[Rfam]
RNA sequence: AAGAAAGAAAAGGAAAUACCUUUUCCCCAUUCUCUUUGGAACAUGAAUGUAUCCAGAACAUGCAACACUAAAAGGGGAGUUCUCAGGGCUGCCAGCCUUAUAGUAGAGGUUGGGUGGUAGUAUAAUUCUCCUACAGAA
Numbered sequence: 001a002a003g004a005a006a007g008a009a010a011a012g013g014a015a016a017u018a019c020c021u022u023u024u025c026c027c028c029a030u031u032c033u034c035u036u037u038g039g040a041a042c043a044u045g046a047a048u049g050u051a052u053c054c055a056g057a058a059c060a061u062g063c064a065a066c067a068c069u070a071a072a073a074g075g076g077g078a079g080u081u082c083u084c085a086g087g088g089c090u091g092c093c094a095g096c097c098u099u100a101u102a103g104u105a106g107a108g109g110u111u112g113g114g115u116g117g118u119a120g121u122a123u124a125a126u127u128c129u130c131c132u133a134c135a136g137a138a
Stems, first nucleotide, its partner, number of pairs: 019045001021043001023041004076131004088118002092114001093112007